RNA sequence: CACUCUUGUUUCUCUUCAAAUCGUAUAAAUCUUUCACCUUUUAUUAAAGACUUAUUAAAGAGAGGAGCAGCAAGAGUUUAAAUUAAUUUUUUGACACUCUGGGGCAGUCGUGGCC
Numbered sequence: 001c002a003c004u005c006u007u008g009u010u011u012c013u014c015u016u017c018a019a020a021u022c023g024u025a026u027a028a029a030u031c032u033u034u035c036a037c038c039u040u041u042u043a044u045u046a047a048a049g050a051c052u053u054a055u056u057a058a059a060g061a062g063a064g065g066a067g068c069a070g071c072a073a074g075a076g077u078u079u080a081a082a083u084u085a086a087u088u089u090u091u092u093g094a095c096a097c098u099c100u101g102g103g104g105c106a107g108u109c110g111u112g113g114c115c
Stems, first nucleotide, its partner, number of pairs: 003076004009065008018056002027053002030050005103115003

Rfam assigns this 115-nucleotide RNA sequence from Mastacembelus armatus to the family "U5 spliceosomal RNA". The family's consensus secondary structure is taken from published work. The match comes from Rfam's covariance-model search (43 bits). U5 RNA is a component of both types of known spliceosome. The precise function of this molecule is unknown, though it is known that the 5' loop is required for splice site selection and p220 binding, and that both the 3' stem-loop and the Sm site are important for Sm protein binding and cap methylation. The family's RNA type in Rfam is spliceosomal small nuclear RNA. A reference for the family is Zwieb (1997), "The uRNA database", Nucleic Acids Res.